Shown here is an 86-nucleotide sequence from Lupinus albus, a member of the family "mir-160 microRNA precursor family".
Gene Ontology terms of the family: RISC complex and miRNA-mediated post-transcriptional gene silencing.
The organism belongs to Lupinus, within Eukaryota.
The literature on the family includes a 2002 paper in Cell by Rhoades et al., "Prediction of plant microRNA targets".
RNA sequence: AUGUGCCUGGCUCCCUGUAUGCCAUUUUCAGAGUUUAUUGGUAUUUUCAUGGCCUCCGUGGAUGGCGUAUGAGGAGCCAAGCAUAC
Numbered sequence: 001a002u003g004u005g006c007c008u009g010g011c012u013c014c015c016u017g018u019a020u021g022c023c024a025u026u027u028u029c030a031g032a033g034u035u036u037a038u039u040g041g042u043a044u045u046u047u048c049a050u051g052g053c054c055u056c057c058g059u060g061g062a063u064g065g066c067g068u069a070u071g072a073g074g075a076g077c078c079a080a081g082c083a084u085a086c
Base pairs, nucleotide, nucleotide: 002085003084004083005082006081008079009078010077011076012075013074014073016071017070018069019068020067021066022065023064024063027060029058
Dot-bracket structure: .(((((.(((((((.(((((((((..(.(............................).)..))))))))).))))))).))))).
Overview
A search with the family's covariance model found it, with a score of 70 bits. Rfam 15.1 lists 1,502 matches to the family in 247 species.